A member of the RNA family "Plastid-psbM 3UTR RNA" from Kingdonia uniflora, 81 nucleotides long. The base pairs follow the family's consensus structure, which was predicted with LocARNA. Rfam describes the family as follows. Plastid psbM is a non-coding RNA (ncRNA) recognised in plastids. It was found in the three prime untranslated region (3UTR) of psbM gene, its 3UTR location suggests a role in transcript maturation. For this family Rfam cites "Retrograde signaling in plants: A critical review focusing on the GUN pathway and beyond" (Richter et al., Plant Commun, 2023). Lineage of the source: Eukaryota > Embryophyta > Spermatophyta > Magnoliopsida > Kingdonia.
RNA sequence: AAUCUGAUAGUAUGGUAAGAAAGAUAUUAAUCUUUCUUUCUACCAUACUAUCUAUAACUUUUAUUGUAUAAAGUUAGUACU
Numbered sequence: 001a002a003u004c005u006g007a008u009a010g011u012a013u014g015g016u017a018a019g020a021a022a023g024a025u026a027u028u029a030a031u032c033u034u035u036c037u038u039u040c041u042a043c044c045a046u047a048c049u050a051u052c053u054a055u056a057a058c059u060u061u062u063a064u065u066g067u068a069u070a071a072a073g074u075u076a077g078u079a080c081u
Base pairs, nucleotide, nucleotide: 006052007051008050009049010048011047012046013045014044015043016042017041019040020039021038022037023036024035